[Rfam]
RNA sequence: GGAUGUGUGUGUCAUGUGAUGGCACAGCUGAACAUCGAUUGCUUUCACCGUUGUGUAUUAGUAAAGCAGAUCUGCUCAGUCGCGUGUCACACGUUGGCUUUCUAGAAGCACUCCGCUGCUCCCAUGUCUCCGCGCAUGGUCGAGCGGCACCGAGCAGCUACUCGAACGCCGCGGAAGCAAAUAGCAUUUCAUGAGGUAAUUUAUUCACAUCCAUAUAACCGGCACUGCAGAUCGCAGCACGCCAGUUUUUUUG
Numbered sequence: 001g002g003a004u005g006u007g008u009g010u011g012u013c014a015u016g017u018g019a020u021g022g023c024a025c026a027g028c029u030g031a032a033c034a035u036c037g038a039u040u041g042c043u044u045u046c047a048c049c050g051u052u053g054u055g056u057a058u059u060a061g062u063a064a065a066g067c068a069g070a071u072c073u074g075c076u077c078a079g080u081c082g083c084g085u086g087u088c089a090c091a092c093g094u095u096g097g098c099u100u101u102c103u104a105g106a107a108g109c110a111c112u113c114c115g116c117u118g119c120u121c122c123c124a125u126g127u128c129u130c131c132g133c134g135c136a137u138g139g140u141c142g143a144g145c146g147g148c149a150c151c152g153a154g155c156a157g158c159u160a161c162u163c164g165a166a167c168g169c170c171g172c173g174g175a176a177g178c179a180a181a182u183a184g185c186a187u188u189u190c191a192u193g194a195g196g197u198a199a200u201u202u203a204u205u206c207a208c209a210u211c212c213a214u215a216u217a218a219c220c221g222g223c224a225c226u227g228c229a230g231a232u233c234g235c236a237g238c239a240c241g242c243c244a245g246u247u248u249u250u251u252u253g
Stems, first nucleotide, its partner, number of pairs: 001212007016090005028079003033074002037072004041067004221243003225237004
Source information: Shown here is a 253-nucleotide RNA sequence from Bemisia tabaci, a member of the family "Arthropod 7SK RNA". Rfam classes the family as a non-coding RNA gene. It scores 87 bits against the family's covariance model. Its Rfam clan is "7SK clan". For this family Rfam cites "Arthropod 7SK RNA" (Gruber et al., Mol Biol Evol, 2008).